Rfam assigns this 130-nucleotide sequence from Neodiprion lecontei to the family "Small Cajal body specific RNA 8". The organism belongs to Neodiprion, within Eukaryota. Rfam's curators write: scaRNAs are a specific class of small nuclear RNAs which localise to the Cajal bodies and guide the modification of RNA polymerase II transcribed spliceosomal RNAs U1, U2, U4, U5 and U12. U92 belong to the H/ACA box class of guide RNAs as it has the predicted hairpin-hinge-hairpin-tail structure, conserved H/ACA-box motifs and is found associated with GAR1. Its family is annotated with RNA processing, nucleolus and Cajal body in the Gene Ontology. Pairs were carried over by alignment from the consensus structure, which is taken from published work.

[Rfam]
RNA sequence: CGGGAGGAAGAUACGUUAGCGGAUGUAAAAUUGUAUCCACUAUUCACAAUUUCUCCCAAAAUUAUAUCUGCUUUCUGAUGACUGUAACUUGUUGAGUGUUAAAUUACAGACAGAUACGGAGCAAAUAAAU
Number, nucleotide and partner (000 for none) at each position: 001c000002g057003g056004g055005a054006g053007g052008a000009a000010g000011a000012u000013a000014c000015g044016u000017u042018a041019g000020c000021g000022g037023a036024u035025g034026u000027a000028a000029a000030a000031u000032u000033g000034u025035a024036u023037c022038c000039a000040c000041u018042a017043u000044u015045c000046a000047c000048a000049a000050u000051u000052u007053c006054u005055c004056c003057c002058a000059a000060a000061a000062u000063u000064a000065u000066a000067u124068c000069u123070g122071c121072u120073u119074u118075c000076u000077g000078a000079u000080g000081a000082c109083u108084g107085u000086a000087a104088c000089u103090u102091g000092u000093u000094g000095a000096g000097u000098g000099u000100u000101a000102a090103a089104u087105u000106a000107c084108a083109g082110a000111c000112a000113g000114a000115u000116a000117c000118g074119g073120a072121g071122c070123a069124a067125a000126u000127a000128a000129a000130u000